[Rfam]
RNA: mir-9229 microRNA precursor family
Organism: Myotis lucifugus
RNA sequence: GAUAUACCUCUAUGGAGCAGGACUUGCUUCAGUGGGGCUUUGAUGCUCACUGAGUCUGCCUCUUGAGUGUGUUACU
Numbered sequence: 001g002a003u004a005u006a007c008c009u010c011u012a013u014g015g016a017g018c019a020g021g022a023c024u025u026g027c028u029u030c031a032g033u034g035g036g037g038c039u040u041u042g043a044u045g046c047u048c049a050c051u052g053a054g055u056c057u058g059c060c061u062c063u064u065g066a067g068u069g070u071g072u073u074a075c076u
Stems, first nucleotide, its partner, number of pairs: 001075001004072004009067001011065002014062002017059003021056003029053008037044001